[Rfam]
RNA sequence: AAAACAGUUUACUAGGGUUCCGCCUGACAACAGGGACAGGUCCGAGAGUAAACCACAGAGCGUAUUUCGAUACUCCUGUGACACGGAGGGAUAAAAACCCGGGAGAU
Numbered sequence: 001a002a003a004a005c006a007g008u009u010u011a012c013u014a015g016g017g018u019u020c021c022g023c024c025u026g027a028c029a030a031c032a033g034g035g036a037c038a039g040g041u042c043c044g045a046g047a048g049u050a051a052a053c054c055a056c057a058g059a060g061c062g063u064a065u066u067u068c069g070a071u072a073c074u075c076c077u078g079u080g081a082c083a084c085g086g087a088g089g090g091a092u093a094a095a096a097a098c099c100c101g102g103g104a105g106a107u
Stems, first nucleotide, its partner, number of pairs: 007053006015043002020040002022037001023034004054080005060074001082102001084105001088100003
Notes: This 107-nucleotide RNA sequence from Paenibacillus monticola belongs to the Rfam family "Guanidine-I riboswitch aptamer". This family represents a conserved RNA structure found upstream of the ykkC and yxkD genes in Bacillus subtilis and related genes in other bacteria. The base pairs follow the family's consensus structure. NCBI's taxonomy places the organism under Bacteria, Bacillati, Bacilli, Paenibacillaceae, Paenibacillus. It scores 83 bits against the family's covariance model.